[Rfam]
RNA sequence: UCGCGUGGCGGGUGGGGAGGUCCUGGUUCCUCUAACCCUAAUGGCUGCUGCCGCGCUCCCCGCGCCCGUCCGCUGUUUUACUCGCUGACUUUCAGCGGACGAGGGGAGUAGCCCGGGGAGGGGGGGCAGAGGGAGGGAGGUGGAAGGCAAAGGGGGGCCCCGCCAUCAAAAAACGUCAGCGAGGGGGGAGCUCCUCACCCGGCCCGCCCUGGGGUCCCCCGUUCCCCCCCCCGAGCCGGGGCUCCCGCCGCCGCGCCGCCCGGAGGCCGCGUUCGGCCGGCGGCCGCCGCCACUGCCGCCGCGAAGAGUUCGCCUCUGUCAGCCUCGGCGGCGGCGGGGAGCGAAGGGGCUCCCUCCCCCUCACCCCACCAGCGCGCUCCAUGCCGGAGGGGGGCGGGGGGAAAAAAAUCCAAAAACCCCAGCAGAGCAACACGGGAGCCGGGCCGAGCGCCGCGCCUCCCUGUGCCGUGGGGCGCGCGGCCGGCGCCGCCCCGACACGC
Numbered sequence: 001u002c003g004c005g006u007g008g009c010g011g012g013u014g015g016g017g018a019g020g021u022c023c024u025g026g027u028u029c030c031u032c033u034a035a036c037c038c039u040a041a042u043g044g045c046u047g048c049u050g051c052c053g054c055g056c057u058c059c060c061c062g063c064g065c066c067c068g069u070c071c072g073c074u075g076u077u078u079u080a081c082u083c084g085c086u087g088a089c090u091u092u093c094a095g096c097g098g099a100c101g102a103g104g105g106g107a108g109u110a111g112c113c114c115g116g117g118g119a120g121g122g123g124g125g126g127c128a129g130a131g132g133g134a135g136g137g138a139g140g141u142g143g144a145a146g147g148c149a150a151a152g153g154g155g156g157g158c159c160c161c162g163c164c165a166u167c168a169a170a171a172a173a174c175g176u177c178a179g180c181g182a183g184g185g186g187g188g189a190g191c192u193c194c195u196c197a198c199c200c201g202g203c204c205c206g207c208c209c210u211g212g213g214g215u216c217c218c219c220c221g222u223u224c225c226c227c228c229c230c231c232c233g234a235g236c237c238g239g240g241g242c243u244c245c246c247g248c249c250g251c252c253g254c255g256c257c258g259c260c261c262g263g264a265g266g267c268c269g270c271g272u273u274c275g276g277c278c279g280g281c282g283g284c285c286g287c288c289g290c291c292a293c294u295g296c297c298g299c300c301g302c303g304a305a306g307a308g309u310u311c312g313c314c315u316c317u318g319u320c321a322g323c324c325u326c327g328g329c330g331g332c333g334g335c336g337g338g339g340a341g342c343g344a345a346g347g348g349g350c351u352c353c354c355u356c357c358c359c360c361u362c363a364c365c366c367c368a369c370c371a372g373c374g375c376g377c378u379c380c381a382u383g384c385c386g387g388a389g390g391g392g393g394g395c396g397g398g399g400g401g402a403a404a405a406a407a408a409u410c411c412a413a414a415a416a417c418c419c420c421a422g423c424a425g426a427g428c429a430a431c432a433c434g435g436g437a438g439c440c441g442g443g444c445c446g447a448g449c450g451c452c453g454c455g456c457c458u459c460c461c462u463g464u465g466c467c468g469u470g471g472g473g474c475g476c477g478c479g480g481c482c483g484g485c486g487c488c489g490c491c492c493c494g495a496c497a498c499g500c
Base pairs, nucleotide, nucleotide: 004206005205007203009201010200011199012198013197014196015195016194017193019191021189022188023187055109056108057107058106059105067101068100069099070098071097072096073095074094075093084180085179086178087177088176089175090173091172092171209422210421211420212419213418214417215416239353240352241351243349244348245347246346248337249336250335251334252333253332254331255329256328257327258326268303269302270301271300274298275297276296277295279291280290281289305317306316307315308314436492438490439489441488442487443485444484445483451480452479453478454477455476458473459472460471461470
A member of the RNA family "Vertebrate telomerase RNA" from Centropus unirufus, 500 nucleotides long. The source organism's lineage runs through Eukaryota, Deuterostomia, Amniota, Coelurosauria and Centropus. A search with the family's covariance model found it, with a score of 126 bits. Telomerase is a ribonucleoprotein reverse transcriptase that synthesises telomeric DNA. Telomerase RNAs differ greatly in sequence and structure between vertebrates, ciliates and yeasts, but they share a 5' pseudoknot structure close to the template sequence. Vertebrate telomerase RNAs have a 3' H/ACA snoRNA-like domain. Gene Ontology terms of the family: telomere maintenance via telomerase, telomerase catalytic core complex and telomerase activity. Pairs were carried over by alignment from the consensus structure, which is taken from published work. Clan: Telomerase clan.